The family of this 57-nucleotide RNA from Haematospirillum jordaniae is "terC RNA". It scores 56 bits against the family's covariance model. The family's RNA type in Rfam is cis-regulatory element.
RNA sequence: GCCUGGAUCCGGGCCCCUCUGGCGGUUGAGGCGUCACCGUGAUGUCGGAUCCCCGUU
Numbered sequence: 001g002c003c004u005g006g007a008u009c010c011g012g013g014c015c016c017c018u019c020u021g022g023c024g025g026u027u028g029a030g031g032c033g034u035c036a037c038c039g040u041g042a043u044g045u046c047g048g049a050u051c052c053c054c055g056u057u
Stems, first nucleotide, its partner, number of pairs: 006051007022040004027036003